[Rfam]
Rfam assigns this 177-nucleotide sequence from Paramixta manurensis to the family "SraG RNA". A search with the family's covariance model found it, with a score of 132 bits. Rfam describes the family as follows. This RNA was discovered in E. coli during a large scale screen. Evidence was found for specific cleavage of this RNA. For this family Rfam cites "Novel small RNA-encoding genes in the intergenic regions of Escherichia coli" (Argaman et al., Curr Biol, 2001).
RNA sequence: CUUCAUUUGCAUCCUCGCGACUAAUGACAACCUUUACUCCUCUCUCUCAUGGAGGAUAAAGCCUCUCAUUAGCCGCGCGAACCUCUGCAACUGAAGAUCACACUCAGCAACAAUACAUUAAAUUGUGCAGGAUUGCUGCCGCCUGCUUGAAAAAAGGGGCCUCAAAGGCCCCUUUUU
Numbered sequence: 001c002u003u004c005a006u007u008u009g010c011a012u013c014c015u016c017g018c019g020a021c022u023a024a025u026g027a028c029a030a031c032c033u034u035u036a037c038u039c040c041u042c043u044c045u046c047u048c049a050u051g052g053a054g055g056a057u058a059a060a061g062c063c064u065c066u067c068a069u070u071a072g073c074c075g076c077g078c079g080a081a082c083c084u085c086u087g088c089a090a091c092u093g094a095a096g097a098u099c100a101c102a103c104u105c106a107g108c109a110a111c112a113a114u115a116c117a118u119u120a121a122a123u124u125g126u127g128c129a130g131g132a133u134u135g136c137u138g139c140c141g142c143c144u145g146c147u148u149g150a151a152a153a154a155a156g157g158g159g160c161c162u163c164a165a166a167g168g169c170c171c172c173u174u175u176u177u
Base pairs, nucleotide, nucleotide: 001096002095003094004093005092009088010087011086016079017078018077019076021072022071023070024069025068026067027066103130156172157171158170159169160168161167